[Rfam]
RNA sequence: GAUGAGGAGUUUGUGCGUGACUCUAAAACCGCCUGAUCUAAACCUUUUCCCGAUGCGAUACCUUUUCUAUGGUCUUAGAUUCACGCACAAACUCGUAAUCUGUCU
Numbered sequence: 001g002a003u004g005a006g007g008a009g010u011u012u013g014u015g016c017g018u019g020a021c022u023c024u025a026a027a028a029c030c031g032c033c034u035g036a037u038c039u040a041a042a043c044c045u046u047u048u049c050c051c052g053a054u055g056c057g058a059u060a061c062c063u064u065u066u067c068u069a070u071g072g073u074c075u076u077a078g079a080u081u082c083a084c085g086c087a088c089a090a091a092c093u094c095g096u097a098a099u100c101u102g103u104c105u
Base pairs, nucleotide, nucleotide: 001103002099003098008093009092010091011090012089013088014087015086016085017084018083019082020081022079023078025076026075029072030071035062037060